Rfam assigns this 82-nucleotide RNA from Halpernia frigidisoli to the family "Flavo-1 RNA".
The family's RNA type in Rfam is small RNA.
Taxonomically the source falls in Halpernia (Bacteria, Bacteroidota, Flavobacteriia, Weeksellaceae).
RNA sequence: ACCUAGCCCCGAUUGCAAUGGAAAUCCUUUUAUGAAUUUUUUAAAAAUUGAUAAAAGAUUGCAAUGGAAAGCGGGACUGCUU
Dot-bracket structure: ........(((.((...((...((((..(((((.(((((.....))))).))))).))))...))...)).)))........